Notes:
The record is a 164-nucleotide sequence from Bailinhaonella thermotolerans, which matches "c-di-AMP riboswitch aptamer (ydaO/yuaA leader)" in Rfam. The organism belongs to Bailinhaonella, within Bacteria.
[Rfam]
RNA sequence: CGGGCCGCACCGCCGAAUCCCUGCUCGCAUCCAGCGCGCGGGGAACCGGGGACCCAAACUUCCCCUGGGGUGAAUCCGUGGCCUGGCGCGUCUCGCGCCCGCGGUAGGGCUGCUCCGGCCCGAACCCGUCAGCUAACCCGGUAGGCGGCCUUGGGAGAGGAGUU
Numbered sequence: 001c002g003g004g005c006c007g008c009a010c011c012g013c014c015g016a017a018u019c020c021c022u023g024c025u026c027g028c029a030u031c032c033a034g035c036g037c038g039c040g041g042g043g044a045a046c047c048g049g050g051g052a053c054c055c056a057a058a059c060u061u062c063c064c065c066u067g068g069g070g071u072g073a074a075u076c077c078g079u080g081g082c083c084u085g086g087c088g089c090g091u092c093u094c095g096c097g098c099c100c101g102c103g104g105u106a107g108g109g110c111u112g113c114u115c116c117g118g119c120c121c122g123a124a125c126c127c128g129u130c131a132g133c134u135a136a137c138c139c140g141g142u143a144g145g146c147g148g149c150c151u152u153g154g155g156a157g158a159g160g161a162g163u164u
Base pairs, nucleotide, nucleotide: 011147012146013145014144018044019043020042021041022040023039024038045142046141047140048139049138050137055067056066068127069126070125076104077103078102079101080100081099107121108120109119110118